[Rfam]
RNA sequence: AAACCGCCCCCUAAGUUUUGCAAUUGUAGCUGUUUUGGCCCCCGAAGACCAAUUUUUAGUAAAAAAAAAAAACAUGUGGCGCCUCACUUAAGGUGCUACGUCAGCAUAGACCGAGUCAAAAUUGGUCUUGGAGGCCAAAACUGCCACAUAUGCAAAACUUAGGGGCGGUUU
Numbered sequence: 001a002a003a004c005c006g007c008c009c010c011c012u013a014a015g016u017u018u019u020g021c022a023a024u025u026g027u028a029g030c031u032g033u034u035u036u037g038g039c040c041c042c043c044g045a046a047g048a049c050c051a052a053u054u055u056u057u058a059g060u061a062a063a064a065a066a067a068a069a070a071a072a073c074a075u076g077u078g079g080c081g082c083c084u085c086a087c088u089u090a091a092g093g094u095g096c097u098a099c100g101u102c103a104g105c106a107u108a109g110a111c112c113g114a115g116u117c118a119a120a121a122u123u124g125g126u127c128u129u130g131g132a133g134g135c136c137a138a139a140a141c142u143g144c145c146a147c148a149u150a151u152g153c154a155a156a157a158c159u160u161a162g163g164g165g166c167g168g169u170u171u
Stems, first nucleotide, its partner, number of pairs: 001171002004168005012161011025148003029144002032141009042131004074101002077098007